A member of the RNA family "PhrS" from Pseudomonas benzenivorans, 208 nucleotides long. For this family Rfam cites "Identification of 17 Pseudomonas aeruginosa sRNAs and prediction of sRNA-encoding genes in 10 diverse pathogens using the bioinformatic tool sRNAPredict2" (Livny et al., Nucleic Acids Res, 2006). The base pairs follow the family's consensus structure, which was predicted with CMfinder. Rfam links the family to the GO term quorum sensing.
RNA sequence: AUCCCCAACAGGAUCAGUGCAGGAGGCAAGCAUGUUUUUCGAUGUCGUAGUUUUAGCCGGUAUCGGCACCGUGGGCUUGAUGGUCGCCUUCUUCGCUGGCGUUGGUUAUUUCAUCUGGAAGGACUCGCACAAGCGCAAGGCGCCGUAAGUUCUCCAGAUUCACGGGCACGCAAGGCAAUUUGGGCGACUUCGGUCGCCCUUUUUUAUU
Dot-bracket structure: ..(..(........................................((.......))................((((....)))).........)..)...................................................................((.(....))).....(((((((....))))))).........
Numbered sequence: 001a002u003c004c005c006c007a008a009c010a011g012g013a014u015c016a017g018u019g020c021a022g023g024a025g026g027c028a029a030g031c032a033u034g035u036u037u038u039u040c041g042a043u044g045u046c047g048u049a050g051u052u053u054u055a056g057c058c059g060g061u062a063u064c065g066g067c068a069c070c071g072u073g074g075g076c077u078u079g080a081u082g083g084u085c086g087c088c089u090u091c092u093u094c095g096c097u098g099g100c101g102u103u104g105g106u107u108a109u110u111u112c113a114u115c116u117g118g119a120a121g122g123a124c125u126c127g128c129a130c131a132a133g134c135g136c137a138a139g140g141c142g143c144c145g146u147a148a149g150u151u152c153u154c155c156a157g158a159u160u161c162a163c164g165g166g167c168a169c170g171c172a173a174g175g176c177a178a179u180u181u182g183g184g185c186g187a188c189u190u191c192g193g194u195c196g197c198c199c200u201u202u203u204u205u206a207u208u
Stems, first nucleotide, its partner, number of pairs: 003098001006095001047057002074085004166176002169174001182199007